RNA sequence: AAAUGUUAUUCCCCUCUCUUCCCGGUUCUUCCCAGAGUCGGGAAAAGCUGGGUUGAGAGGGCAAAAAAUUAAAAAA
Numbered sequence: 001a002a003a004u005g006u007u008a009u010u011c012c013c014c015u016c017u018c019u020u021c022c023c024g025g026u027u028c029u030u031c032c033c034a035g036a037g038u039c040g041g042g043a044a045a046a047g048c049u050g051g052g053u054u055g056a057g058a059g060g061g062c063a064a065a066a067a068a069u070u071a072a073a074a075a076a
Stems, first nucleotide, its partner, number of pairs: 014059005021052005029044005
RNA: mir-320 microRNA precursor family